[Rfam]
Nucleotides: 133
Stems, first nucleotide, its partner, number of pairs: 001132004
Number, partner (000 for none) and nucleotide at each position: 001132a002131g003130g004129c005000a006000a007000u008000g009000a010000a011000g012000a013000u014000a015000g016000a017000a018000a019000a020000c021000a022000u023000u024000u025000c026000u027000c028000g029000a030000u031000u032000c033000u034000g035000a036000u037000u038000g039000u040000a041000a042000a043000a044000u045000g046000c047000u048000u049000g050000g051000a052000a053000u054000u055000u056000g057000a058000u059000c060000u061000u062000g063000g064000g065000u066000g067000a068000g069000u070000u071000a072000a073000a074000a075000u076000c077000a078000u079000c080000c081000a082000g083000a084000u085000u086000u087000u088000u089000u090000g091000c092000c093000a094000a095000u096000u097000g098000u099000a100000a101000u102000u103000u104000g105000a106000u107000g108000a109000c110000c111000g112000a113000a114000u115000u116000u117000g118000u119000g120000c121000g122000u123000g124000u125000c126000u127000g128000a129004g130003c131002c132001u133000c